[Rfam]
RNA sequence: UUUGAAAUGCAAGCGCCAGAGCUCGAGCGGGACGGAAACGGCUUGAGCUGACGAGGUGAAGGUGUUCGAAGUUAUUCGGCGGGGACCUUCCGGUACACCAUCAGUGCCGUAAGUUGGGGGGCAAAAAACCGGGCGACCGGUCGGACAAGAUCCCAACAUGUGAUGAA
Number, nucleotide and partner (000 for none) at each position: 001u000002u000003u000004g000005a000006a000007a000008u000009g000010c000011a000012a000013g000014c000015g000016c000017c000018a000019g000020a049021g048022c047023u046024c045025g044026a043027g042028c040029g000030g000031g000032a000033c000034g000035g000036a000037a000038a000039c000040g028041g000042c027043u026044u025045g024046a023047g022048c021049u020050g000051a000052c000053g000054a000055g000056g000057u000058g090059a089060a088061g087062g086063u000064g000065u000066u079067c078068g077069a076070a000071g000072u000073u000074a000075u000076u069077c068078g067079g066080c000081g000082g000083g000084g000085a000086c062087c061088u060089u059090c058091c109092g108093g107094u106095a105096c104097a000098c000099c000100a000101u000102c000103a000104g096105u095106g094107c093108c092109g091110u000111a000112a000113g157114u156115u155116g154117g153118g152119g151120g000121g000122c000123a000124a000125a000126a000127a000128a141129c140130c139131g138132g137133g000134c000135g000136a000137c132138c131139g130140g129141u128142c000143g000144g000145a000146c000147a000148a000149g000150a000151u119152c118153c117154c116155a115156a114157c113158a000159u000160g000161u000162g000163a000164u000165g000166a000167a000
glmS glucosamine-6-phosphate activated ribozyme aptamer: a 167-nucleotide RNA from Paenibacillus contaminans. Taxonomically the source falls in Paenibacillus (Bacteria, Bacillota, Caryophanales, Paenibacillaceae). The family's RNA type in Rfam is riboswitch. It scores 79 bits against the family's covariance model.